[Rfam]
RNA: Group I catalytic intron
Organism: Galerina marginata
RNA sequence: CCAGAAAAGUUAAUGUGUUAGCUUUUAAGAGCAGACUCAAAGUGUUCUGCUAGUGGGUCUGCUUUGCUAUUGGUGAGGAGCAGUAACCUGCAAGACCGUCAAAUUGCGGGAAAGUCCUUAGAGCCUUUGCUACCGCCUCUGCAUGGAAACAUAGCAGUGUGCACCAGGGUAAUGACCUCGGGUAUGGUAAAAACGCAAAGGAUUGGAUAAUCUGCAGCCAAGUCCUAAUGGUUUCACAACCUAUGGAUGCAGUUCAACGACUAAAUGGCGGUCGGUUUCAGAAUAAAUUUAUUUAAACCUGAAGCUUAAGAUAUAGUCUGGCCCUCCAGAGAUGGAGUC
Numbered sequence: 001c002c003a004g005a006a007a008a009g010u011u012a013a014u015g016u017g018u019u020a021g022c023u024u025u026u027a028a029g030a031g032c033a034g035a036c037u038c039a040a041a042g043u044g045u046u047c048u049g050c051u052a053g054u055g056g057g058u059c060u061g062c063u064u065u066g067c068u069a070u071u072g073g074u075g076a077g078g079a080g081c082a083g084u085a086a087c088c089u090g091c092a093a094g095a096c097c098g099u100c101a102a103a104u105u106g107c108g109g110g111a112a113a114g115u116c117c118u119u120a121g122a123g124c125c126u127u128u129g130c131u132a133c134c135g136c137c138u139c140u141g142c143a144u145g146g147a148a149a150c151a152u153a154g155c156a157g158u159g160u161g162c163a164c165c166a167g168g169g170u171a172a173u174g175a176c177c178u179c180g181g182g183u184a185u186g187g188u189a190a191a192a193a194c195g196c197a198a199a200g201g202a203u204u205g206g207a208u209a210a211u212c213u214g215c216a217g218c219c220a221a222g223u224c225c226u227a228a229u230g231g232u233u234u235c236a237c238a239a240c241c242u243a244u245g246g247a248u249g250c251a252g253u254u255c256a257a258c259g260a261c262u263a264a265a266u267g268g269c270g271g272u273c274g275g276u277u278u279c280a281g282a283a284u285a286a287a288u289u290u291a292u293u294u295a296a297a298c299c300u301g302a303a304g305c306u307u308a309a310g311a312u313a314u315a316g317u318c319u320g321g322c323c324c325u326c327c328a329g330a331g332a333u334g335g336a337g338u339c
Stems, first nucleotide, its partner, number of pairs: 005026009030068006094273005100267002105216006115207003217253002222248004230241004257319001259318005275305007324337005